Shown here is a 166-nucleotide RNA sequence from Streptomyces sp. GMY02, a member of the family "c-di-AMP riboswitch aptamer (ydaO/yuaA leader)".
Lineage of the source: Bacteria > Bacillati > Kitasatosporales > Streptomycetaceae > Streptomyces.
For this family Rfam cites "New RNA motifs suggest an expanded scope for riboswitches in bacterial genetic control" (Barrick et al., Proc Natl Acad Sci U S A, 2004).
RNA sequence: UCGCGUCACGCGCCGUAGGCAGGAGCGGGGGACCCAGGUAAGUCGCCGCGCCGGUCGGUAGACCGGAGCGGCUGGGGGUGAAGCCGUGCCUCAUCGAGGGCACGGCCGGGCAACUCAACCGGCCCGAACCCGACAGCUCACCUCGCAGGCGUCGGUGAGGGGAUCC
Numbered sequence: 001u002c003g004c005g006u007c008a009c010g011c012g013c014c015g016u017a018g019g020c021a022g023g024a025g026c027g028g029g030g031g032a033c034c035c036a037g038g039u040a041a042g043u044c045g046c047c048g049c050g051c052c053g054g055u056c057g058g059u060a061g062a063c064c065g066g067a068g069c070g071g072c073u074g075g076g077g078g079u080g081a082a083g084c085c086g087u088g089c090c091u092c093a094u095c096g097a098g099g100g101c102a103c104g105g106c107c108g109g110g111c112a113a114c115u116c117a118a119c120c121g122g123c124c125c126g127a128a129c130c131c132g133a134c135a136g137c138u139c140a141c142c143u144c145g146c147a148g149g150c151g152u153c154g155g156u157g158a159g160g161g162g163a164u165c166c
Stems, first nucleotide, its partner, number of pairs: 011151004025146006035075001076131003084105007108125004
Rfam links the family to the GO terms regulation of gene expression and cyclic-di-AMP binding. A search with the family's covariance model found it, with a score of 65 bits.